[Rfam]
The record is a 116-nucleotide RNA from Bacillus sp. DNRA2, which matches "BsrF" in Rfam. Pairs were carried over by alignment from the consensus structure, which was predicted with WAR. By type it is a small RNA.
RNA sequence: GCGAUGAGCUAACUUGCAUAAGUCAAUAGAUAUGCUUAAUUGCUAAACGUAUGAAUGUGGUCAUACGGUCUAUUGCCGCAAACGCAUAAAAAAGCGCCUGUUUUCGAACAGGCGCU
Dot-bracket structure: .............((((......((((((((..((......))....((.(((........))).))))))))))..))))...........(((((((((......)))))))))